Rfam assigns this 120-nucleotide sequence from Brucella rhizosphaerae to the family "Alphaproteobacterial ar14". Taxonomically the source falls in Brucella (Bacteria, Pseudomonadati, Alphaproteobacteria, Brucellaceae). Pairs were carried over by alignment from the consensus structure. By type it is a small RNA. Rfam links the family to the GO term biological process involved in symbiotic interaction.
RNA sequence: GGUUGUUCAGUUUCACUCCUCCUCCCAGAAACUGAACUCGAAGCGCGGCACUCCUCCUCCCAGUCGCGCUUUCCAGAUCAGCCCGCUGCACACUCCUCCUCCCAGUGCAGCGGGCUUUCU
Numbered sequence: 001g002g003u004u005g006u007u008c009a010g011u012u013u014c015a016c017u018c019c020u021c022c023u024c025c026c027a028g029a030a031a032c033u034g035a036a037c038u039c040g041a042a043g044c045g046c047g048g049c050a051c052u053c054c055u056c057c058u059c060c061c062a063g064u065c066g067c068g069c070u071u072u073c074c075a076g077a078u079c080a081g082c083c084c085g086c087u088g089c090a091c092a093c094u095c096c097u098c099c100u101c102c103c104a105g106u107g108c109a110g111c112g113g114g115c116u117u118u119c120u
Stems, first nucleotide, its partner, number of pairs: 005037002008034007040072010081115011

About the family: Smr14C2 was renamed NfeR1 (Nodule Formation Efficiency RNA) highly expressed in salt stress and during the symbiotic interaction on legume roots.